[Rfam]
RNA sequence: GGGUAAUGAUGUUUAAACCUAUUCCAUUGCUGAAACGUAUUGUAGAAAACAAAAGCUGAACUC
Numbered sequence: 001g002g003g004u005a006a007u008g009a010u011g012u013u014u015a016a017a018c019c020u021a022u023u024c025c026a027u028u029g030c031u032g033a034a035a036c037g038u039a040u041u042g043u044a045g046a047a048a049a050c051a052a053a054a055g056c057u058g059a060a061c062u063c
Base pairs, nucleotide, nucleotide: 001063002062003061004060
Dot-bracket structure: ((((.......................................................))))
The family of this 63-nucleotide sequence from Pseudonaja textilis is "Small nucleolar RNA SNORD98". Rfam links the family to the GO terms RNA processing and nucleolus. By type it is a C/D-box small nucleolar RNA. The literature on the family includes a 2001 paper in EMBO J by Huttenhofer et al., "RNomics: an experimental approach that identifies 201 candidates for novel, small, non-messenger RNAs in mouse". A search with the family's covariance model found it, with a score of 68 bits.